[Rfam]
RNA: RAGATH-18 RNA
RNA sequence: CUUGUGGACUAUCAUAUCAACUGUAUUAGCAAUUUUGAUGCGAGGCAGGAUAGGAAGAAGCAAGAA
Dot-bracket structure: (((((...(((((.......(((.....(((.......)))....))))))))......)))))..